[Rfam]
RNA sequence: AAGAGUUCUGGUUUUAAAAAUGGCGCACAAUGUGCGCCAUUUUUUUUGCCUUGAACCAACCUCUUCCUGUUAACAGCCACUUACUUUUUAAAACCCAUGUAAACACGCCAGAA
Numbered sequence: 001a002a003g004a005g006u007u008c009u010g011g012u013u014u015u016a017a018a019a020a021u022g023g024c025g026c027a028c029a030a031u032g033u034g035c036g037c038c039a040u041u042u043u044u045u046u047u048g049c050c051u052u053g054a055a056c057c058a059a060c061c062u063c064u065u066c067c068u069g070u071u072a073a074c075a076g077c078c079a080c081u082u083a084c085u086u087u088u089u090a091a092a093a094c095c096c097a098u099g100u101a102a103a104c105a106c107g108c109c110a111g112a113a
Stems, first nucleotide, its partner, number of pairs: 005056004010050003016044013062112003067107001068105004073100003